[Rfam]
RNA: Small nucleolar RNA SNORA17
Organism: Cyprinus carpio
RNA sequence: UUUGCCCCUUGAGGCGUUGCAGUGUGACUGAUUCUGUCUCUUCUGUGUCAUAAGGUGGCAUAGAGUAGAAGGACUAAGUCUACACCUAGUACCCUUUUAAUAAUGGGUGCUCAGUGUCAUUUAUAGUCCUACAUG
Numbered sequence: 001u002u003u004g005c006c007c008c009u010u011g012a013g014g015c016g017u018u019g020c021a022g023u024g025u026g027a028c029u030g031a032u033u034c035u036g037u038c039u040c041u042u043c044u045g046u047g048u049c050a051u052a053a054g055g056u057g058g059c060a061u062a063g064a065g066u067a068g069a070a071g072g073a074c075u076a077a078g079u080c081u082a083c084a085c086c087u088a089g090u091a092c093c094c095u096u097u098u099a100a101u102a103a104u105g106g107g108u109g110c111u112c113a114g115u116g117u118c119a120u121u122u123a124u125a126g127u128c129c130u131a132c133a134u135g
Base pairs, nucleotide, nucleotide: 003060004059005058006057007055008054009053010052011051013049014048015047019046020045021044022043024040026038027037028036068132070130071129072128073127074126075125076124084117086114087113089111090109091108092107093106094105